[Rfam]
RNA sequence: CCUAUCGUGAGGUAGAAUCUGAAGGAAGUCGGCGGCAAACCUUUGGUCUGAGGAACACGAAUCACAUGAGGCUUAAUUUAGUGGGUAAGCUUGCCUAACAAAGCAAAGCCCAAUAACUAUCCGAAAACUAAUUAAGUAAAUGUGGCAGAUAGAUGAAUGGAAAGUGUACGUU
Numbered sequence: 001c002c003u004a005u006c007g008u009g010a011g012g013u014a015g016a017a018u019c020u021g022a023a024g025g026a027a028g029u030c031g032g033c034g035g036c037a038a039a040c041c042u043u044u045g046g047u048c049u050g051a052g053g054a055a056c057a058c059g060a061a062u063c064a065c066a067u068g069a070g071g072c073u074u075a076a077u078u079u080a081g082u083g084g085g086u087a088a089g090c091u092u093g094c095c096u097a098a099c100a101a102a103g104c105a106a107a108g109c110c111c112a113a114u115a116a117c118u119a120u121c122c123g124a125a126a127a128c129u130a131a132u133u134a135a136g137u138a139a140a141u142g143u144g145g146c147a148g149a150u151a152g153a154u155g156a157a158u159g160g161a162a163a164g165u166g167u168a169c170g171u172u
Stems, first nucleotide, its partner, number of pairs: 002015005028172001030170002035165002040159001042157004046150005062145005071137003075133001078131005083111004089104004
About this RNA: This 172-nucleotide RNA sequence from Clostridium paraputrificum belongs to the Rfam family "Group II catalytic intron D1-D4-3". The pairing is the family consensus, mapped onto this sequence.